Notes
A member of the RNA family "Small nucleolar RNA SNORA15" from Salvelinus namaycush, 137 nucleotides long.

RNA sequence: GCAUGGAUGAAUUCUGUGUUACUCUGUCAGUAGUAGAUGCAAUCAGACACCAUGCAAAAACAUUCUUUCACUACUUCUUUACUAAAGGUGAGUGCUGACCUGUGCCUCGCCUACUCCUUGGAGAAGUGAAUACAAGU
Numbered sequence: 001g002c003a004u005g006g007a008u009g010a011a012u013u014c015u016g017u018g019u020u021a022c023u024c025u026g027u028c029a030g031u032a033g034u035a036g037a038u039g040c041a042a043u044c045a046g047a048c049a050c051c052a053u054g055c056a057a058a059a060a061c062a063u064u065c066u067u068u069c070a071c072u073a074c075u076u077c078u079u080u081a082c083u084a085a086a087g088g089u090g091a092g093u094g095c096u097g098a099c100c101u102g103u104g105c106c107u108c109g110c111c112u113a114c115u116c117c118u119u120g121g122a123g124a125a126g127u128g129a130a131u132a133c134a135a136g137u
Stems, first nucleotide, its partner, number of pairs: 001055006015041005067130003071126002074123004085119004090114001092112001094110002097107001

Gene Ontology terms of the family: RNA processing and nucleolus. The match comes from Rfam's covariance-model search (64 bits). By type it is an H/ACA-box small nucleolar RNA. ACA15 is a member of the H/ACA class of snoRNA that guide the sites of modification of uridines to pseudouridines. Lineage of the source: Eukaryota > Bilateria > Teleostomi > Euteleosteomorpha > Salvelinus. A reference for the family is Huttenhofer et al. (2001), "RNomics: an experimental approach that identifies 201 candidates for novel, small, non-messenger RNAs in mouse", EMBO J.